[Rfam]
RNA sequence: UGAAUUAUUUGGCAAACUAAUGGAAACGUUAGGACGCAAAGCUAUAGGGCCUUUAAAAUGGUAGCCAGUUGCAGAA
Numbered sequence: 001u002g003a004a005u006u007a008u009u010u011g012g013c014a015a016a017c018u019a020a021u022g023g024a025a026a027c028g029u030u031a032g033g034a035c036g037c038a039a040a041g042c043u044a045u046a047g048g049g050c051c052u053u054u055a056a057a058a059u060g061g062u063a064g065c066c067a068g069u070u071g072c073a074g075a076a
Stems, first nucleotide, its partner, number of pairs: 012037002017032006040070004047066002049062003

Background
The family of this 76-nucleotide RNA sequence from Ilyobacter polytropus is "c-di-GMP-I riboswitch aptamer". Pairs were carried over by alignment from the consensus structure, which is taken from published work. A search with the family's covariance model found it, with a score of 63 bits. Its Rfam clan is "c-di-GMP_I riboswitch clan". Its family is annotated with cyclic-di-GMP binding in the Gene Ontology.